[Rfam]
RNA sequence: GAGAUAUGAUGAUUCUUUUAUUGGUCCGUGUUUCUGAUUUAACCGUGACCGACAUUUAUUUUUACCAAUCUCUGAUCUC
Dot-bracket structure: ((((.......................................................................))))